[Rfam]
RNA: Xanthine riboswitch aptamer (NMT1 RNA)
Organism: Pigmentiphaga sp. NML030171
RNA sequence: CGAAAGAGUAGAAGCGUUCAGCGCAAUCGCCCGGCGCCGUCCGGCCCGAUUGGCGGGUCAUUGCUCUUGAA
Numbered sequence: 001c002g003a004a005a006g007a008g009u010a011g012a013a014g015c016g017u018u019c020a021g022c023g024c025a026a027u028c029g030c031c032c033g034g035c036g037c038c039g040u041c042c043g044g045c046c047c048g049a050u051u052g053g054c055g056g057g058u059c060a061u062u063g064c065u066c067u068u069g070a071a
Stems, first nucleotide, its partner, number of pairs: 005067006015056001019057001021054002024052005